[Rfam]
RNA sequence: CUCUUCACCAAAAAAACAGAUCUGUGUCCAGCGGUCCUCUUCCUGCUUUCGCGGGUCAAGGGUCGACUGCUGGUCAGUUCGACGACUAUGCAAAUCUUCAAGUCUUUCGAUUAGUGAUGGAGUAAGUGCGGUCGACAGAUCUCAGAAAGAGCUUUGGUCAUAUCAUAUCUUGAGCUCUUCGUGAGCUCGGUGUCGUGGCCGAAGGGGCGCUAUAUUCCGAAUCGUUCCCGAGUCCGUUGGACGCUGAGGGUAGGGAAAAACCAUAGCUUGCCUACAUAC
Dot-bracket structure: .................(((((((((.((((.(((((((((.((((....))).)..)))))..)))).)))).).......(((((..((..(((...................)))...))......)))))))))))))............((.........((((..((((((.....)))))))))).......))....((((((((........((.(((((..((((...)))).....))).)).))......)))))..))).......
Numbered sequence: 001c002u003c004u005u006c007a008c009c010a011a012a013a014a015a016a017c018a019g020a021u022c023u024g025u026g027u028c029c030a031g032c033g034g035u036c037c038u039c040u041u042c043c044u045g046c047u048u049u050c051g052c053g054g055g056u057c058a059a060g061g062g063u064c065g066a067c068u069g070c071u072g073g074u075c076a077g078u079u080c081g082a083c084g085a086c087u088a089u090g091c092a093a094a095u096c097u098u099c100a101a102g103u104c105u106u107u108c109g110a111u112u113a114g115u116g117a118u119g120g121a122g123u124a125a126g127u128g129c130g131g132u133c134g135a136c137a138g139a140u141c142u143c144a145g146a147a148a149g150a151g152c153u154u155u156g157g158u159c160a161u162a163u164c165a166u167a168u169c170u171u172g173a174g175c176u177c178u179u180c181g182u183g184a185g186c187u188c189g190g191u192g193u194c195g196u197g198g199c200c201g202a203a204g205g206g207g208c209g210c211u212a213u214a215u216u217c218c219g220a221a222u223c224g225u226u227c228c229c230g231a232g233u234c235c236g237u238u239g240g241a242c243g244c245u246g247a248g249g250g251u252a253g254g255g256a257a258a259a260a261c262c263a264u265a266g267c268u269u270g271c272c273u274a275c276a277u278a279c
Stems, first nucleotide, its partner, number of pairs: 018142008026075001028073004033068004037062005043055001044053003083134005090123002094118003155201002166192004172188006206272003209267005222256002225253002227250003232242004

Rfam assigns this 279-nucleotide RNA from Salinomyces thailandicus to the family "A. fumigatus sRNA Afu_309". A reference for the family is Jochl et al. (2008), "Small ncRNA transcriptome analysis from Aspergillus fumigatus suggests a novel mechanism for regulation of protein synthesis", Nucleic Acids Res. The family's consensus secondary structure was predicted with WAR. Rfam classes the family as a small RNA.